[Rfam]
This 120-nucleotide sequence from Geomonas silvestris belongs to the Rfam family "Molybdenum/Tungsten riboswitch aptamer (Moco RNA motif)". A reference for the family is Regulski et al. (2008), "in molybdenum cofactor and tungsten cofactor metabolism", Mol Microbiol. The base pairs follow the family's consensus structure, which is taken from published work. It scores 57 bits against the family's covariance model.
RNA sequence: ACAGAUGCACUUCUCCGAGCUGUCCCGCCUAAAGGGGUCGUCCUCCACGGCGCGCAGCUAACGGGUCCUGCCGGAAACGGCAGCGCCUUCCUUUUGAAAAGGAGAGACCAACCGGCUCCG
Dot-bracket structure: ...(.(....((((((..(((((..((((....(((......)))...)))).)))))....((((.((((((....)))))).))))((.....))...))))))....).).......